[Rfam]
RNA sequence: GAUUUAUAAAGAAGCGGCGAGAGAUCAGGCUCAACGACCCGCUGGCAACCCUCCAGGGUGGAGAAGGUGCCAAAUCCUGGCCCGGAGAAUGGAUCUCCGGGAGAUAUAAAUU
Numbered sequence: 001g002a003u004u005u006a007u008a009a010a011g012a013a014g015c016g017g018c019g020a021g022a023g024a025u026c027a028g029g030c031u032c033a034a035c036g037a038c039c040c041g042c043u044g045g046c047a048a049c050c051c052u053c054c055a056g057g058g059u060g061g062a063g064a065a066g067g068u069g070c071c072a073a074a075u076c077c078u079g080g081c082c083c084g085g086a087g088a089a090u091g092g093a094u095c096u097c098c099g100g101g102a103g104a105u106a107u108a109a110a111u112u
Base pairs, nucleotide, nucleotide: 001112002111003110004109005108006107007106008105013043014042015041016040017039021032022031023030026079027078028077029076044071045070046069047068049067050066051063052062053061054060075104081101082100083099084098085097086096087095088094

The record is a 112-nucleotide sequence from Mucilaginibacter ginsenosidivorans, which matches "SAM riboswitch aptamer (S box leader)" in Rfam. NCBI's taxonomy places the organism under Bacteria, Bacteroidota, Sphingobacteriales, Sphingobacteriaceae, Mucilaginibacter. Rfam links the family to the GO term regulation of gene expression. Its Rfam clan is "SAM clan". About the family: The SAM riboswitch is found upstream of a number of genes which code for proteins involved in methionine or cysteine biosynthesis in Gram-positive bacteria. The SAM riboswitch acts at the level of transcription termination control. The predicted structure consists of a complex stem-loop region followed by a single stem loop terminator region. It scores 77 bits against the family's covariance model.